[Rfam]
RNA: Small nucleolar RNA SNORA74
RNA sequence: UCCAGUGGUAGUCAGCUGUCCAGAGCAGUACUGUGCCUGUGAUGGUGUUACACUGCUGGGAGAUAAAAAUCAGUCAUUUCUUCUGGCCGUUGUCACCGUUCUGGAGACAGCUGAUGCCAAAGAGAAGUGGCGUUGUGCUUCCCUGAGAGUGUGCUAAGGGUUUGCUUUCCCUCUAGUGCUAGUCCGGAAGCAUACAUG
Numbered sequence: 001u002c003c004a005g006u007g008g009u010a011g012u013c014a015g016c017u018g019u020c021c022a023g024a025g026c027a028g029u030a031c032u033g034u035g036c037c038u039g040u041g042a043u044g045g046u047g048u049u050a051c052a053c054u055g056c057u058g059g060g061a062g063a064u065a066a067a068a069a070u071c072a073g074u075c076a077u078u079u080c081u082u083c084u085g086g087c088c089g090u091u092g093u094c095a096c097c098g099u100u101c102u103g104g105a106g107a108c109a110g111c112u113g114a115u116g117c118c119a120a121a122g123a124g125a126a127g128u129g130g131c132g133u134u135g136u137g138c139u140u141c142c143c144u145g146a147g148a149g150u151g152u153g154c155u156a157a158g159g160g161u162u163u164g165c166u167u168u169c170c171c172u173c174u175a176g177u178g179c180u181a182g183u184c185c186g187g188a189a190g191c192a193u194a195c196a197u198g
Stems, first nucleotide, its partner, number of pairs: 001060009011051002015046006021039003068133001071130001073128002079123004084116002087113001089111001091109004096104002135193008151179003155175002158172003